[Rfam]
RNA sequence: UAAGUAGGACAGAUGGCCGCUGCCACAAUGCCGAAAGGCAGUGGGAGAGGAAAGUCCGGGCUUCACAGGGCAGGAUGCCAGAUAACGUCUGGCGGAGGCGACUCCAGGGACAGUGCAACAGAAAUGUACCGCCGGCAGAUGCCGGUAAGGGUGGAAGGGCAGUGUAAGAGACUACCGCCUGCCUGGCAACAGACAGGGCACAUGUAAACCCCAUCCGAAGCAAGACUGAACAGAAAGCGAAAGGCGGCCCGUCUGCUUUCGGGUAGGUCGCUUGAGCCAAACGGCGACGUUUGGCCUAGAUGGAUGGCCAUCCACGACAUAACCCGGCUUACCGUCCUGCUUAAGGA
Numbered sequence: 001u002a003a004g005u006a007g008g009a010c011a012g013a014u015g016g017c018c019g020c021u022g023c024c025a026c027a028a029u030g031c032c033g034a035a036a037g038g039c040a041g042u043g044g045g046a047g048a049g050g051a052a053a054g055u056c057c058g059g060g061c062u063u064c065a066c067a068g069g070g071c072a073g074g075a076u077g078c079c080a081g082a083u084a085a086c087g088u089c090u091g092g093c094g095g096a097g098g099c100g101a102c103u104c105c106a107g108g109g110a111c112a113g114u115g116c117a118a119c120a121g122a123a124a125u126g127u128a129c130c131g132c133c134g135g136c137a138g139a140u141g142c143c144g145g146u147a148a149g150g151g152u153g154g155a156a157g158g159g160c161a162g163u164g165u166a167a168g169a170g171a172c173u174a175c176c177g178c179c180u181g182c183c184u185g186g187c188a189a190c191a192g193a194c195a196g197g198g199c200a201c202a203u204g205u206a207a208a209c210c211c212c213a214u215c216c217g218a219a220g221c222a223a224g225a226c227u228g229a230a231c232a233g234a235a236a237g238c239g240a241a242a243g244g245c246g247g248c249c250c251g252u253c254u255g256c257u258u259u260c261g262g263g264u265a266g267g268u269c270g271c272u273u274g275a276g277c278c279a280a281a282c283g284g285c286g287a288c289g290u291u292u293g294g295c296c297u298a299g300a301u302g303g304a305u306g307g308c309c310a311u312c313c314a315c316g317a318c319a320u321a322a323c324c325c326g327g328c329u330u331a332c333c334g335u336c337c338u339g340c341u342u343a344a345g346g347a
Stems, first nucleotide, its partner, number of pairs: 001343010012312007020047002023044004052330003056327005061220004068250004073216005078092005093107001094105004108211002113209002115205003129150002131146006158176002161173003177199001178197004183192003224269004233260006242254004276295008
RNA: Bacterial RNase P class A